[Rfam]
RNA sequence: AGCCAUGUGGUGAGCACAGAGCGAACUAUUCUUUCGCCUUUUACUAAAGAAUACCGUGUGCUCGUCAUAAUUAGUGGCAUACGCCAAUUUUUUGGAGGGGCUUCUUCUAAGGAAGCUC
Numbered sequence: 001a002g003c004c005a006u007g008u009g010g011u012g013a014g015c016a017c018a019g020a021g022c023g024a025a026c027u028a029u030u031c032u033u034u035c036g037c038c039u040u041u042u043a044c045u046a047a048a049g050a051a052u053a054c055c056g057u058g059u060g061c062u063c064g065u066c067a068u069a070a071u072u073a074g075u076g077g078c079a080u081a082c083g084c085c086a087a088u089u090u091u092u093u094g095g096a097g098g099g100g101c102u103u104c105u106u107c108u109a110a111g112g113a114a115g116c117u118c
Stems, first nucleotide, its partner, number of pairs: 003077004008067011027053008095118001099117006
Notes:
A member of the RNA family "U5 spliceosomal RNA" from Corymbia citriodora, 118 nucleotides long. It scores 94 bits against the family's covariance model. Taxonomically the source falls in Corymbia citriodora (Eukaryota, Streptophytina, Pentapetalae, Eucalypteae).